Source information:
This 621-nucleotide RNA sequence from Hemisphaericaspora subhashii belongs to the Rfam family "RNase MRP". RNase MRP is an enzymatically active ribonucleoprotein with two distinct roles in eukaryotes. In mitochondria it plays a direct role in the initiation of mitochondrial DNA replication. In the nucleus it is involved in precursor rRNA processing, where it cleaves the internal transcribed spacer 1 between 18S and 5.8S rRNAs. Rfam classes the family as a ribozyme. Lineage of the source: Eukaryota > Ascomycota > Saccharomycotina > Pichiomycetes > Hemisphaericaspora. It scores 72 bits against the family's covariance model.
[Rfam]
RNA sequence: GUCCAUAGUCAAAGAUUUGUUAUCGAAGCUCACAAAAGGAUAUUCACUUUUUGUGUAUAUCAAUGCAAAUGCUUUGGGGAAAGUCUCCUGUCACAACAGCGGAAACGUAAUGGAUUAUCAUCAAUUCCAUUGACGAAAUGGUCAAAUGUUUUUCAGAGUUUUGAUAUGGUUAUGGGUGGUCCUAUAUGUGUUUAUUGGUAUCUUUGAAUGCUUGAAGGUUUUCUUUGCUUAAUUCUUUUCUUGGAGGAUUGAUGGUAUCUGUUUGUCUUUUACUAAUUCGUUUGAGUCUUGUCUUGCAAAAGCUCUGGUAAUUGACAUUCAUAAUUGGAUACUCAUCGAUUUUCAUAUCAAGGAGAAUAGAGGCAGAGAAAUCCCUAGUUUAAGUUUAUCUGAUACAUGUAUUUGGCCGCCUCAUGUCAAUCUUCUUAUCAGCUUGAUCAUUUUGUAUAUUUUUGCCUAAUUGGGUUUAUUUAACUCCCGAUUGGAUGCUAUGUUGGUGUUAUUCUUCGGAAUGAUAUUGAUUUCUGUCGGCAAUGGGGCUUUGUGUCCUAAACGAUAGUUAUAACAAAUGAUCAAAGUCAAAUUUGAUUAACGCAAUGGAGCUUAUUCUUGACUUAUGGA
Numbered sequence: 001g002u003c004c005a006u007a008g009u010c011a012a013a014g015a016u017u018u019g020u021u022a023u024c025g026a027a028g029c030u031c032a033c034a035a036a037a038g039g040a041u042a043u044u045c046a047c048u049u050u051u052u053g054u055g056u057a058u059a060u061c062a063a064u065g066c067a068a069a070u071g072c073u074u075u076g077g078g079g080a081a082a083g084u085c086u087c088c089u090g091u092c093a094c095a096a097c098a099g100c101g102g103a104a105a106c107g108u109a110a111u112g113g114a115u116u117a118u119c120a121u122c123a124a125u126u127c128c129a130u131u132g133a134c135g136a137a138a139u140g141g142u143c144a145a146a147u148g149u150u151u152u153u154c155a156g157a158g159u160u161u162u163g164a165u166a167u168g169g170u171u172a173u174g175g176g177u178g179g180u181c182c183u184a185u186a187u188g189u190g191u192u193u194a195u196u197g198g199u200a201u202c203u204u205u206g207a208a209u210g211c212u213u214g215a216a217g218g219u220u221u222u223c224u225u226u227g228c229u230u231a232a233u234u235c236u237u238u239u240c241u242u243g244g245a246g247g248a249u250u251g252a253u254g255g256u257a258u259c260u261g262u263u264u265g266u267c268u269u270u271u272a273c274u275a276a277u278u279c280g281u282u283u284g285a286g287u288c289u290u291g292u293c294u295u296g297c298a299a300a301a302g303c304u305c306u307g308g309u310a311a312u313u314g315a316c317a318u319u320c321a322u323a324a325u326u327g328g329a330u331a332c333u334c335a336u337c338g339a340u341u342u343u344c345a346u347a348u349c350a351a352g353g354a355g356a357a358u359a360g361a362g363g364c365a366g367a368g369a370a371a372u373c374c375c376u377a378g379u380u381u382a383a384g385u386u387u388a389u390c391u392g393a394u395a396c397a398u399g400u401a402u403u404u405g406g407c408c409g410c411c412u413c414a415u416g417u418c419a420a421u422c423u424u425c426u427u428a429u430c431a432g433c434u435u436g437a438u439c440a441u442u443u444u445g446u447a448u449a450u451u452u453u454u455g456c457c458u459a460a461u462u463g464g465g466u467u468u469a470u471u472u473a474a475c476u477c478c479c480g481a482u483u484g485g486a487u488g489c490u491a492u493g494u495u496g497g498u499g500u501u502a503u504u505c506u507u508c509g510g511a512a513u514g515a516u517a518u519u520g521a522u523u524u525c526u527g528u529c530g531g532c533a534a535u536g537g538g539g540c541u542u543u544g545u546g547u548c549c550u551a552a553a554c555g556a557u558a559g560u561u562a563u564a565a566c567a568a569a570u571g572a573u574c575a576a577a578g579u580c581a582a583a584u585u586u587g588a589u590u591a592a593c594g595c596a597a598u599g600g601a602g603c604u605u606a607u608u609c610u611u612g613a614c615u616u617a618u619g620g621a
Base pairs, nucleotide, nucleotide: 002621003620004619005618006617008614009613010612011611012610015570016569017568018567019566020565023077024076025075026074027073028072029071039061040060041059042058043057045055046054047053081605082604083603085602086601087600088599099108100107101106110125111124113122114121115120499540500539504537505536507534509532513530514529515528516527572589573588574587575586576585577584

About this RNA:
Rfam links the family to the GO terms ribonuclease MRP activity, rRNA processing and ribonuclease MRP complex.